[Rfam]
RNA sequence: GUCACCGUCGGCUCGGAUUCGCUUGGUGCAGGCCGGGAACCAAUUGUCUAACACAUCCACAAAGUUUUACUUGCUGGUUUGUGAGCAGGGAUUGGAUCCCGCCUUGCAUCAAUUGAAUCGGAGUCCUGAUGGUGAAA
Numbered sequence: 001g002u003c004a005c006c007g008u009c010g011g012c013u014c015g016g017a018u019u020c021g022c023u024u025g026g027u028g029c030a031g032g033c034c035g036g037g038a039a040c041c042a043a044u045u046g047u048c049u050a051a052c053a054c055a056u057c058c059a060c061a062a063a064g065u066u067u068u069a070c071u072u073g074c075u076g077g078u079u080u081g082u083g084a085g086c087a088g089g090g091a092u093u094g095g096a097u098c099c100c101g102c103c104u105u106g107c108a109u110c111a112a113u114u115g116a117a118u119c120g121g122a123g124u125c126c127u128g129a130u131g132g133u134g135a136a137a
Base pairs, nucleotide, nucleotide: 013122014121017118018117019116020115023112024111025110026109027108028107029106030105031104032103034101035100036099037098038097040095041094042093043092044091